RNA sequence: GUGUUCUAAAACAAUGAAAGCCCUACCUCUCUUUCAUCCUUGCGGCUCCUAGACCGCGCCAGUGUGAAUCAGUUAACACAGUUACAA
Numbered sequence: 001g002u003g004u005u006c007u008a009a010a011a012c013a014a015u016g017a018a019a020g021c022c023c024u025a026c027c028u029c030u031c032u033u034u035c036a037u038c039c040u041u042g043c044g045g046c047u048c049c050u051a052g053a054c055c056g057c058g059c060c061a062g063u064g065u066g067a068a069u070c071a072g073u074u075a076a077c078a079c080a081g082u083u084a085c086a087a
Stems, first nucleotide, its partner, number of pairs: 034067003039062002041058005047052001
The record is an 87-nucleotide sequence from Paenibacillus sp. FSL H7-0331, which matches "BsrC" in Rfam. The base pairs follow the family's consensus structure, which was predicted with CMfinder. Lineage of the source: Bacteria > Bacillati > Bacilli > Paenibacillaceae > Paenibacillus. From the family's description: The 301 nucleotide sequence from Kouji Nakamura has been trimmed to a highly conserved ~85 nucleotide long core to form this family.